[Rfam]
The record is a 166-nucleotide RNA from Fictibacillus aquaticus, which matches "glmS glucosamine-6-phosphate activated ribozyme aptamer" in Rfam. The match comes from Rfam's covariance-model search (110 bits).

RNA sequence: UUUAUUUACCAAGCGCCUGAACUGCUUAUCGGACGAAAACAAGCAGUUGACGAGGAUAGAGGUUAUCGAACUUUCGGCGGAUGCCUCUCGGGAUUGAUCAGCCCGCAAGCUGCAGCUUAAACCAGGCAAGGUGACUUCCUGUACAAAGGCAGCAGCACCGAUCAAA
Numbered sequence: 001u002u003u004a005u006u007u008a009c010c011a012a013g014c015g016c017c018u019g020a021a022c023u024g025c026u027u028a029u030c031g032g033a034c035g036a037a038a039a040c041a042a043g044c045a046g047u048u049g050a051c052g053a054g055g056a057u058a059g060a061g062g063u064u065a066u067c068g069a070a071c072u073u074u075c076g077g078c079g080g081a082u083g084c085c086u087c088u089c090g091g092g093a094u095u096g097a098u099c100a101g102c103c104c105g106c107a108a109g110c111u112g113c114a115g116c117u118u119a120a121a122c123c124a125g126g127c128a129a130g131g132u133g134a135c136u137u138c139c140u141g142u143a144c145a146a147a148g149g150c151a152g153c154a155g156c157a158c159c160g161a162u163c164a165a166a
Stems, first nucleotide, its partner, number of pairs: 020048008029039001058088005066077004089105004094100001109156005115150001123141004128137003
On this family, see Jansen et al., Nat Struct Mol Biol 2006: "Backbone and nucleobase contacts to glucosamine-6-phosphate in the glmS ribozyme".
The family's RNA type in Rfam is riboswitch.